Small nucleolar RNA snR191: a 259-nucleotide RNA from Brettanomyces naardenensis. A reference for the family is Badis et al. (2003), "A snoRNA that guides the two most conserved pseudouridine modifications within rRNA confers a growth advantage in yeast", RNA. The family is grouped with related families in Rfam's "SNORA74 clan". By type it is an H/ACA-box small nucleolar RNA. Its family is annotated with nucleolus and RNA processing in the Gene Ontology.
RNA sequence: CACCAAAUGAUUUUGUCAGGACACCCUAUGUGCAGUGCAAAUGCACUCACUCAUUCUACAAUAUAGCUUGUCUGUUACAUCUUUGGAAUAUCGAUUGUCAUCGCCCGGUCGACUGUAUCCGUUUUGGAUGCCUUGUUGACUACCUUCUGUUUCGUUUUGAAAUGGGAACCUUAGAUGACUGUGGGAUUUUAUGAGUUGAACUCCCUUCCCUCGAAAGAGGGAUUCAGUAACGGAGUCCGUAGUAAAGAACCCAACAUUU
Numbered sequence: 001c002a003c004c005a006a007a008u009g010a011u012u013u014u015g016u017c018a019g020g021a022c023a024c025c026c027u028a029u030g031u032g033c034a035g036u037g038c039a040a041a042u043g044c045a046c047u048c049a050c051u052c053a054u055u056c057u058a059c060a061a062u063a064u065a066g067c068u069u070g071u072c073u074g075u076u077a078c079a080u081c082u083u084u085g086g087a088a089u090a091u092c093g094a095u096u097g098u099c100a101u102c103g104c105c106c107g108g109u110c111g112a113c114u115g116u117a118u119c120c121g122u123u124u125u126g127g128a129u130g131c132c133u134u135g136u137u138g139a140c141u142a143c144c145u146u147c148u149g150u151u152u153c154g155u156u157u158u159g160a161a162a163u164g165g166g167a168a169c170c171u172u173a174g175a176u177g178a179c180u181g182u183g184g185g186a187u188u189u190u191a192u193g194a195g196u197u198g199a200a201c202u203c204c205c206u207u208c209c210c211u212c213g214a215a216a217g218a219g220g221g222a223u224u225c226a227g228u229a230a231c232g233g234a235g236u237c238c239g240u241a242g243u244a245a246a247g248a249a250c251c252c253a254a255c256a257u258u259u
Stems, first nucleotide, its partner, number of pairs: 003086005019073005026066003034047005097179006107141007115131006147166001148164007182253004187248004197239002200236002204232001206230002211221002